Description: This 117-nucleotide RNA sequence from Methylomonas denitrificans belongs to the Rfam family "ALIL pseudoknot". Rfam links the family to the GO term positive regulation of translational frameshifting. By type it is a cis-regulatory element.
RNA sequence: CGCGUAUUUUGCACAGGCGGAGCUCGACCGCCCGUUCAAACGAUGAAAGCGUUCGUUGACGAUCAUCGCGCCGUCUAUGGGGUCGAGCCAAUCUGCAAGGUAUUGCCGAUUGCCCCA
Numbered sequence: 001c002g003c004g005u006a007u008u009u010u011g012c013a014c015a016g017g018c019g020g021a022g023c024u025c026g027a028c029c030g031c032c033c034g035u036u037c038a039a040a041c042g043a044u045g046a047a048a049g050c051g052u053u054c055g056u057u058g059a060c061g062a063u064c065a066u067c068g069c070g071c072c073g074u075c076u077a078u079g080g081g082g083u084c085g086a087g088c089c090a091a092u093c094u095g096c097a098a099g100g101u102a103u104u105g106c107c108g109a110u111u112g113c114c115c116c117a
Base pairs, nucleotide, nucleotide: 016032017031018030019029020028078117079116080115081114082113089112090111092109093108095106096105097104098103